[Rfam]
Nucleotides: 360
Base pairs, nucleotide, nucleotide: 001272002271003270004269005268014263015262027251028250030248031247032246036052037051038050039049040048053233054232055231056230057229058228059227273305274304275303276302
Number, partner (000 for none) and nucleotide at each position: 001272c002271g003270u004269u005268g006000u007000a008000a009000u010000c011000c012000c013000u014263c015262u016000g017000g018000a019000u020000u021000u022000g023000a024000c025000g026000g027251g028250u029000g030248u031247c032246g033000g034000a035000a036052a037051g038050g039049g040048g041000u042000u043000c044000g045000a046000u047000u048040c049039c050038c051037c052036u053233c054232a055231c056230c057229u058228c059227c060000a061000c062000c063000a064000a065000a066000u067000g068000c069000g070000c071000a072000u073000c074000u075000a076000c077000c078000u079000c080000c081000g082000g083000u084000g085000g086000g087000c088000g089000c090000g091000c092000c093000c094000g095000a096000c097000a098000g099000a100000g101000a102000c103000u104000u105000c106000a107000a108000c109000c110000g111000c112000g113000g114000a115000u116000g117000u118000u119000g120000c121000c122000c123000g124000a125000a126000g127000g128000c129000c130000a131000a132000g133000g134000g135000u136000g137000a138000c139000a140000g141000u142000u143000g144000a145000u146000g147000c148000g149000g150000g151000a152000g153000c154000g155000g156000a157000u158000u159000a160000g161000a162000c163000c164000g165000c166000u167000u168000g169000a170000g171000a172000g173000u174000a175000g176000c177000g178000a179000a180000c181000u182000a183000a184000c185000g186000g187000g188000c189000a190000g191000c192000g193000u194000g195000c196000g197000g198000u199000u200000c201000a202000a203000c204000u205000c206000c207000g208000c209000a210000g211000u212000a213000g214000g215000u216000g217000u218000g219000c220000a221000u222000c223000u224000g225000a226000u227059g228058g229057g230056g231055g232054u233053g234000u235000a236000c237000a238000g239000g240000u241000u242000u243000c244000g245000a246032c247031g248030g249000c250028g251027c252000a253000c254000a255000g256000a257000g258000a259000u260000g261000a262015a263014g264000g265000c266000g267000g268005c269004a270003a271002c272001g273305c274304g275303g276302g277000c278000a279000g280000g281000c282000g283000a284000c285000u286000a287000c288000c289000c290000g291000g292000c293000a294000g295000g296000c297000u298000u299000c300000g301000g302276c303275u304274u305273g306000u307000g308000a309000a310000c311000a312000g313000a314000g315000c316000g317000a318000a319000a320000a321000a322000g323000u324000a325000a326000a327000u328000g329000c330000a331000a332000a333000c334000g335000a336000c337000g338000a339000a340000g341000u342000g343000u344000u345000u346000g347000c348000g349000g350000u351000g352000g353000c354000c355000g356000c357000c358000u359000a360000a